[Rfam]
RNA sequence: AUUCCUUCUGUUGUGUAUCCUUGGUUAAUGCAACCUCAUAUGCUUCA
Dot-bracket structure: .........((((........))))......(.(.......).)...
Source information: The family of this 47-nucleotide RNA from Hibiscus trionum is "Plastid-ycf3 group II-D1 intron". Rfam 15.1 lists 1,488 matches to the family in 559 species. Plastid rpl16 is a non-coding RNA (ncRNA) recognised in plastids. Lineage of the source: Eukaryota > Streptophytina > Embryophyta > Spermatophyta > Hibiscus.